[Rfam]
RNA sequence: UGGUAGAUGCACCCUAAUUGCCGCCCUCAGUCUAUGGCUGGGGGUAUUUUUU
Numbered sequence: 001u002g003g004u005a006g007a008u009g010c011a012c013c014c015u016a017a018u019u020g021c022c023g024c025c026c027u028c029a030g031u032c033u034a035u036g037g038c039u040g041g042g043g044g045u046a047u048u049u050u051u052u
Stems, first nucleotide, its partner, number of pairs: 002013003023045010

The record is a 52-nucleotide RNA from Iningainema tapete, which matches "Nitrogen stress-induced RNA 1" in Rfam. A search with the family's covariance model found it, with a score of 44 bits.